[Rfam]
RNA sequence: UGCGUAUUUUGCCCAGGCGGAGCUCGACCGCCGAGGCAAGUGAUGGUCGAUUUCAUCGACGACCAUCGUCGGGUUUACGGUGUCGAGCCGAUCUGCCGGAUAGUGCCGAUCGCACCG
Numbered sequence: 001u002g003c004g005u006a007u008u009u010u011g012c013c014c015a016g017g018c019g020g021a022g023c024u025c026g027a028c029c030g031c032c033g034a035g036g037c038a039a040g041u042g043a044u045g046g047u048c049g050a051u052u053u054c055a056u057c058g059a060c061g062a063c064c065a066u067c068g069u070c071g072g073g074u075u076u077a078c079g080g081u082g083u084c085g086a087g088c089c090g091a092u093c094u095g096c097c098g099g100a101u102a103g104u105g106c107c108g109a110u111c112g113c114a115c116c117g
Stems, first nucleotide, its partner, number of pairs: 016032005078117005089112002092109002095106002